The record is a 95-nucleotide RNA sequence from Coptis chinensis, which matches "Small nucleolar RNA Z221/R21b" in Rfam. It scores 57 bits against the family's covariance model. It is annotated as a C/D-box small nucleolar RNA. Rfam links the family to the GO terms nucleolus and RNA processing.

RNA sequence: GUGCUAUGAAGAUUUUUCAAAGUCAUGCACCACUCUGAGAUUAUUUCUUAAUAGUCUGUGCUGAUUAUUACUCAAACCCAUUUUUAUCUGAGCAC
Number, nucleotide and partner (000 for none) at each position: 001g095002u094003g093004c092005u000006a000007u000008g000009a000010a000011g000012a000013u000014u000015u000016u000017u000018c000019a000020a000021a000022g000023u000024c000025a000026u000027g000028c000029a000030c000031c000032a000033c000034u000035c000036u000037g000038a000039g000040a000041u000042u000043a000044u000045u000046u000047c000048u000049u000050a000051a000052u000053a000054g000055u000056c000057u000058g000059u000060g000061c000062u000063g000064a000065u000066u000067a000068u000069u000070a000071c000072u000073c000074a000075a000076a000077c000078c000079c000080a000081u000082u000083u000084u000085u000086a000087u000088c000089u000090g000091a000092g004093c003094a002095c001